[Rfam]
RNA sequence: GACGGGGCAUAAAAGGCCUCUCUGGGAACGACUUGAGUGCAAACUCAUGGUAGGACCUGAGAGGAGCCGAUGUUCCGUCGUACGUUUUGAAAAACGA
Dot-bracket structure: ((((((((((....((..((((.((...(....(((((....))))).....)..)).))))....)).))))))))))...(((........))).